[Rfam]
RNA sequence: GCAACGGACCCCCGCGGCGUCCAUCCUGUGAACCUCCCCAGGGCCGGAAGGCAGCAAGGAUAAGCAGGCUCUGACGGGUGCGGGGGUCCCCUUGUUCGG
Numbered sequence: 001g002c003a004a005c006g007g008a009c010c011c012c013c014g015c016g017g018c019g020u021c022c023a024u025c026c027u028g029u030g031a032a033c034c035u036c037c038c039c040a041g042g043g044c045c046g047g048a049a050g051g052c053a054g055c056a057a058g059g060a061u062a063a064g065c066a067g068g069c070u071c072u073g074a075c076g077g078g079u080g081c082g083g084g085g086g087u088c089c090c091c092u093u094g095u096u097c098g099g
Base pairs, nucleotide, nucleotide: 004093006091007090009086010085011084012083013082014081015078018076019075020074021073025068026067027066028065029064035060036059037058043052044051045050

The record is a 99-nucleotide sequence from Amycolatopsis acidiphila, which matches "Bacterial small signal recognition particle RNA" in Rfam. Rfam classes the family as a non-coding RNA gene. Pairs were carried over by alignment from the consensus structure, which is taken from published work. It scores 69 bits against the family's covariance model. Rfam describes the family as follows. The signal recognition particle (SRP) is a universally conserved ribonucleoprotein involved in the co-translational targeting of proteins to membranes. NCBI's taxonomy places the organism under Bacteria, Bacillati, Actinomycetota, Actinomycetes, Amycolatopsis.